Description
Glutamine riboswitch aptamer (glnA leader): a 59-nucleotide sequence from Aphanothece sacrum. Lineage of the source: Bacteria > Bacillati > Cyanophyceae > Oscillatoriophycideae > Aphanothece sacrum.

[Rfam]
RNA sequence: AUCGUUCAUCUGCUUAGAGUAGACGGAAGUAGAGAGUGGAACUCUUGAAGGAACGCGCC
Numbered sequence: 001a002u003c004g005u006u007c008a009u010c011u012g013c014u015u016a017g018a019g020u021a022g023a024c025g026g027a028a029g030u031a032g033a034g035a036g037u038g039g040a041a042c043u044c045u046u047g048a049a050g051g052a053a054c055g056c057g058c059c
Base pairs, nucleotide, nucleotide: 003055004054005053006052007051009023010022011021012020013019026056032046033045034044035043036042037041